RNA sequence: UUGCAGGACAAAACGCAUGGCGUUUUGAACAGCGCUUGCGCUGGCCCCGAAGGGGCGAAGCCGCAGGCUGAGUCACGCGGCGAC
Numbered sequence: 001u002u003g004c005a006g007g008a009c010a011a012a013a014c015g016c017a018u019g020g021c022g023u024u025u026u027g028a029a030c031a032g033c034g035c036u037u038g039c040g041c042u043g044g045c046c047c048c049g050a051a052g053g054g055g056c057g058a059a060g061c062c063g064c065a066g067g068c069u070g071a072g073u074c075a076c077g078c079g080g081c082g083a084c
Stems, first nucleotide, its partner, number of pairs: 009027008030043005044056005059069004072084003
Shown here is an 84-nucleotide RNA sequence from Brenneria goodwinii, a member of the family "Aggregatibacter sRNA 22". The literature on the family includes a 2017 paper in DNA Res by Oogai et al., "Small RNA repertoires and their intraspecies variation in Aggregatibacter actinomycetemcomitans". The family's RNA type in Rfam is small RNA.